[Rfam]
RNA sequence: GUUCCUUCGCUAAGGAGCUCCUUAUGCGGAAACUCACGGCUGCUCUGAUAGUUAGCCUGAUAGGGUUGAUUGCACUGUCCGUGUCGACCACGGCUGCUGCAUGUGACGGGACUUCUGGUUCUGGCUAUUCGAGCCCAAAGUGACCGCCUCACCCGAAUGCGCCGAGCGCGCACGAAAAAAGGCCUUCAUCCGACGAUGAAGGCCUUUUACU
Numbered sequence: 001g002u003u004c005c006u007u008c009g010c011u012a013a014g015g016a017g018c019u020c021c022u023u024a025u026g027c028g029g030a031a032a033c034u035c036a037c038g039g040c041u042g043c044u045c046u047g048a049u050a051g052u053u054a055g056c057c058u059g060a061u062a063g064g065g066u067u068g069a070u071u072g073c074a075c076u077g078u079c080c081g082u083g084u085c086g087a088c089c090a091c092g093g094c095u096g097c098u099g100c101a102u103g104u105g106a107c108g109g110g111a112c113u114u115c116u117g118g119u120u121c122u123g124g125c126u127a128u129u130c131g132a133g134c135c136c137a138a139a140g141u142g143a144c145c146g147c148c149u150c151a152c153c154c155g156a157a158u159g160c161g162c163c164g165a166g167c168g169c170g171c172a173c174g175a176a177a178a179a180a181g182g183c184c185u186u187c188a189u190c191c192g193a194c195g196a197u198g199a200a201g202g203c204c205u206u207u208u209a210c211u
Stems, first nucleotide, its partner, number of pairs: 002036001006030005013022003038057003042052003063154004072100003075096001079093005105148001107146002111141004159171004177208014

About this RNA
Burkholderia sRNA 11: a 211-nucleotide RNA from Caballeronia novacaledonica. Gene Ontology term of the family: bacterial biofilm matrix. It is annotated as a small RNA. Pairs were carried over by alignment from the consensus structure, which was predicted with RNAfold. Lineage of the source: Bacteria > Pseudomonadota > Betaproteobacteria > Burkholderiales > Caballeronia.